[Rfam]
RNA sequence: UUCUUAUUGGAUUAUGACUGUCACGUGUCAUGUUCUGAUUGUAUGUCAACUACAUGGAAGAUGAAAUGUAUUGUUGUUGUCAUUGAUCAAUCAGAAUAUGACAUGUGACAGUCAUCAUCC
Numbered sequence: 001u002u003c004u005u006a007u008u009g010g011a012u013u014a015u016g017a018c019u020g021u022c023a024c025g026u027g028u029c030a031u032g033u034u035c036u037g038a039u040u041g042u043a044u045g046u047c048a049a050c051u052a053c054a055u056g057g058a059a060g061a062u063g064a065a066a067u068g069u070a071u072u073g074u075u076g077u078u079g080u081c082a083u084u085g086a087u088c089a090a091u092c093a094g095a096a097u098a099u100g101a102c103a104u105g106u107g108a109c110a111g112u113c114a115u116c117a118u119c120c
Stems, first nucleotide, its partner, number of pairs: 020109004025104002029100003033096004038091003

Shown here is a 120-nucleotide RNA sequence from Glycine max, a member of the family "MIR1520 microRNA precursor family". Rfam links the family to the GO terms RISC complex and miRNA-mediated post-transcriptional gene silencing. NCBI's taxonomy places the organism under Eukaryota, Embryophyta, Spermatophyta, Gunneridae, Glycine subgen. Soja. The family has 18 seed sequences and 1,934 matches in Rfam 15.1.